[Rfam]
The record is a 102-nucleotide RNA from Oceanobacillus bengalensis, which matches "Purine riboswitch aptamer" in Rfam.
The source organism's lineage runs through Bacteria, Bacillati, Bacilli, Bacillaceae and Oceanobacillus.
The match comes from Rfam's covariance-model search (83 bits).

RNA sequence: AUAAUAAAUAUGAUAGCCUUUCGUAUAUCCUCGAUAAUAUGGUUCGAAAGUUUCUACCGGGGCACCGUAAAUGCUCUGACUAUGAAGGCAGAAUAAUUUCCA
Numbered sequence: 001a002u003a004a005u006a007a008a009u010a011u012g013a014u015a016g017c018c019u020u021u022c023g024u025a026u027a028u029c030c031u032c033g034a035u036a037a038u039a040u041g042g043u044u045c046g047a048a049a050g051u052u053u054c055u056a057c058c059g060g061g062g063c064a065c066c067g068u069a070a071a072u073g074c075u076c077u078g079a080c081u082a083u084g085a086a087g088g089c090a091g092a093a094u095a096a097u098u099u100c101c102a
Stems, first nucleotide, its partner, number of pairs: 018088008031047004058078007